[Rfam]
RNA sequence: GGUCUUAUGGUCUAGUGGUCAUGACACUGGUUUUUGAAGCGAUUCGAAUUGUCGAUUGUGAAAAUAUAAUACCAGUAACCCCGGUUCGAACCCGGGUAGGACCU
Numbered sequence: 001g002g003u004c005u006u007a008u009g010g011u012c013u014a015g016u017g018g019u020c021a022u023g024a025c026a027c028u029g030g031u032u033u034u035u036g037a038a039g040c041g042a043u044u045c046g047a048a049u050u051g052u053c054g055a056u057u058g059u060g061a062a063a064a065u066a067u068a069a070u071a072c073c074a075g076u077a078a079c080c081c082c083g084g085u086u087c088g089a090a091c092c093c094g095g096g097u098a099g100g101a102c103c104u
Stems, first nucleotide, its partner, number of pairs: 001103007010025003027075005080096005
Dot-bracket structure: (((((((..(((..........))).(((((.......................................)))))....(((((.......)))))))))))).
This 104-nucleotide sequence from Penicillium freii belongs to the Rfam family "tRNA". From the family's description: Transfer RNA (tRNA) molecules are approximately 80 nucleotides in length. The match comes from Rfam's covariance-model search (53 bits). It is annotated as a transfer RNA.